[Rfam]
RNA: MIR2619 microRNA precursor family
Organism: Medicago truncatula
RNA sequence: AAACAGCCCCCUAUGUAUUGGAUCUUUGGCAGUUUUGACCCCGAAGACCAAUUUUGACUUGGUCUUCGUUGACGUGGCACCCACAUCAUUAAGUGAGGUGCCACAUGUAAUUUUUGUGGGUGCCACGUCAGCGAAGACCAAGUCAAAAUUGAUCUUGGGGGCCAAAACUGACAAAGAUCCAAAACAUAGGGGGUUGUUU
Dot-bracket structure: ((.(((((...(((((.(((((((((((.((((((((.((((.((..........................((.((((((((...................................)))))))).))..........................)).)))).)))))))).))))))))))).)))))...))))).))